The record is a 72-nucleotide RNA sequence from Pieris brassicae, which matches "mir-252 microRNA precursor family" in Rfam.
RNA sequence: UCUGGUUCCUAAGUACUAGUGCCGCAGGAGUGUUUUAUGUAUCUCCUGCUGCUUAAGUGCUUAUCAAUAGAU
Numbered sequence: 001u002c003u004g005g006u007u008c009c010u011a012a013g014u015a016c017u018a019g020u021g022c023c024g025c026a027g028g029a030g031u032g033u034u035u036u037a038u039g040u041a042u043c044u045c046c047u048g049c050u051g052c053u054u055a056a057g058u059g060c061u062u063a064u065c066a067a068u069a070g071a072u
Stems, first nucleotide, its partner, number of pairs: 003070001005068003010063008019054001024049007
The source organism's lineage runs through Eukaryota, Altocrustacea, Obtectomera, Pierini and Pieris.